Small nucleolar RNA SNORD82: a 67-nucleotide sequence from Xenopus laevis. Rfam's curators write: snoRNA U82 or Z25 is found in both humans and mice. The match comes from Rfam's covariance-model search (55 bits). Its family is annotated with RNA processing and nucleolus in the Gene Ontology. The base pairs follow the family's consensus structure, which was predicted with PFOLD. By type it is a C/D-box small nucleolar RNA.

[Rfam]
RNA sequence: GGCAUAUGUGAUGAACAAUAUGGGACUUAAUACUGAAAACCUUGAUGUCUUUAACUUGCUGAUAUGC
Numbered sequence: 001g002g003c004a005u006a007u008g009u010g011a012u013g014a015a016c017a018a019u020a021u022g023g024g025a026c027u028u029a030a031u032a033c034u035g036a037a038a039a040c041c042u043u044g045a046u047g048u049c050u051u052u053a054a055c056u057u058g059c060u061g062a063u064a065u066g067c
Stems, first nucleotide, its partner, number of pairs: 002067005